[Rfam]
RNA sequence: GUGGGAACAGCACAGUCGUAACUCUGACUCGCCUUCACGGGCUUGGGAUUGCGACAGUGC
Numbered sequence: 001g002u003g004g005g006a007a008c009a010g011c012a013c014a015g016u017c018g019u020a021a022c023u024c025u026g027a028c029u030c031g032c033c034u035u036c037a038c039g040g041g042c043u044u045g046g047g048a049u050u051g052c053g054a055c056a057g058u059g060c
Stems, first nucleotide, its partner, number of pairs: 010060004015055007024047002031042004

The family of this 60-nucleotide RNA sequence is "S15-Halobacteria ribosomal protein leader".
The family is grouped with related families in Rfam's "Ribosomal Protein S15 Leader clan".
It is annotated as a cis-regulatory leader.